[Rfam]
RNA sequence: CUCUCUGUGCAGGUGGGGAUGCGUUGCAAUGCUCUACGUAUAAUGCUGUGGUAUUGCACUUGUCCCGGCCUGUGCAGGGCUG
Numbered sequence: 001c002u003c004u005c006u007g008u009g010c011a012g013g014u015g016g017g018g019a020u021g022c023g024u025u026g027c028a029a030u031g032c033u034c035u036a037c038g039u040a041u042a043a044u045g046c047u048g049u050g051g052u053a054u055u056g057c058a059c060u061u062g063u064c065c066c067g068g069c070c071u072g073u074g075c076a077g078g079g080c081u082g
Base pairs, nucleotide, nucleotide: 004078005077006076009073010072011071012070013069014068016066017065018064019063020062023059024058026057027056028055029054030053031052032051033050
mir-92 microRNA precursor family: an 82-nucleotide sequence from Albula goreensis. Its Rfam clan is "mir-92 microRNA precursor clan". This family represents the microRNA precursor mir-92. It scores 60 bits against the family's covariance model. The literature on the family includes a 2002 paper in Genes Dev by Mourelatos et al., "miRNPs: a novel class of ribonucleoproteins containing numerous microRNAs". Its family is annotated with RISC complex and miRNA-mediated post-transcriptional gene silencing in the Gene Ontology. Taxonomically the source falls in Albula (Eukaryota, Bilateria, Actinopteri, Albulidae).